[Rfam]
RNA sequence: GCGUCAGAUCAUAUUCUCCUUCGUAUAUCCUCGAUAAUAAGGUUCGAGAGUCUCUACCGGGUUGCCAUUAACAACCUGACUAUGAAGGCAGGGUUCUUUAUA
Numbered sequence: 001g002c003g004u005c006a007g008a009u010c011a012u013a014u015u016c017u018c019c020u021u022c023g024u025a026u027a028u029c030c031u032c033g034a035u036a037a038u039a040a041g042g043u044u045c046g047a048g049a050g051u052c053u054c055u056a057c058c059g060g061g062u063u064g065c066c067a068u069u070a071a072c073a074a075c076c077u078g079a080c081u082a083u084g085a086a087g088g089c090a091g092g093g094u095u096c097u098u099u100a101u102a
Base pairs, nucleotide, nucleotide: 018088019087020086021085022084023083024082025081030048031047032046033045034044058078059077060076061075062074063073064072
Rfam assigns this 102-nucleotide sequence from Fictibacillus arsenicus to the family "Purine riboswitch aptamer". The source organism's lineage runs through Bacteria, Bacillati, Bacilli, Caryophanales and Fictibacillus. A search with the family's covariance model found it, with a score of 78 bits. About the family: Riboswitches are metabolite binding domains within certain messenger RNAs that serve as precision sensors for their corresponding targets. The base pairs follow the family's consensus structure, which is taken from published work. Rfam links the family to the GO term purine nucleobase biosynthetic process.